The record is an 82-nucleotide sequence from Leptobrachium leishanense, which matches "Small nucleolar RNA SNORD121A" in Rfam. The organism belongs to Leptobrachium, within Eukaryota. The family's consensus secondary structure was predicted with WAR.
[Rfam]
RNA sequence: AUCCAGAGCACGGUGAUGCUUAUGUUCCAAGCACGUAACCGAGCUUAAUGUGUGGAAACAAACCAGUCUGAGUGCUCUGCGU
Numbered sequence: 001a002u003c004c005a006g007a008g009c010a011c012g013g014u015g016a017u018g019c020u021u022a023u024g025u026u027c028c029a030a031g032c033a034c035g036u037a038a039c040c041g042a043g044c045u046u047a048a049u050g051u052g053u054g055g056a057a058a059c060a061a062a063c064c065a066g067u068c069u070g071a072g073u074g075c076u077c078u079g080c081g082u
Stems, first nucleotide, its partner, number of pairs: 001082002004079003008075004